[Rfam]
The record is a 137-nucleotide sequence from Gadus morhua, which matches "Small nucleolar RNA SNORA15" in Rfam. The family's RNA type in Rfam is H/ACA-box small nucleolar RNA. The family's consensus secondary structure was predicted with RNAfold. The literature on the family includes a 2001 paper in EMBO J by Huttenhofer et al., "RNomics: an experimental approach that identifies 201 candidates for novel, small, non-messenger RNAs in mouse". The source organism's lineage runs through Eukaryota, Deuterostomia, Actinopterygii, Osteoglossocephalai and Gadus. ACA15 is a member of the H/ACA class of snoRNA that guide the sites of modification of uridines to pseudouridines.
RNA sequence: GCGUGGACGAAUUCUGUGUUAGCCUCUCCGUGGUCAAUGCAGCCAGACACCAUGCUAGAGAACCUUUCACACCUGACCGCUACAAGGAUGGGAGUACUGAUCCGUAUUUGUAUCCUAGUGUCAACGUGAAUACAAAU
Numbered sequence: 001g002c003g004u005g006g007a008c009g010a011a012u013u014c015u016g017u018g019u020u021a022g023c024c025u026c027u028c029c030g031u032g033g034u035c036a037a038u039g040c041a042g043c044c045a046g047a048c049a050c051c052a053u054g055c056u057a058g059a060g061a062a063c064c065u066u067u068c069a070c071a072c073c074u075g076a077c078c079g080c081u082a083c084a085a086g087g088a089u090g091g092g093a094g095u096a097c098u099g100a101u102c103c104g105u106a107u108u109u110g111u112a113u114c115c116u117a118g119u120g121u122c123a124a125c126g127u128g129a130a131u132a133c134a135a136a137u
Base pairs, nucleotide, nucleotide: 001055002054003053004052005051006050014042015041016040017039018038019037066130067129068128074123075122076121077120083118085116086115087114088113089112090111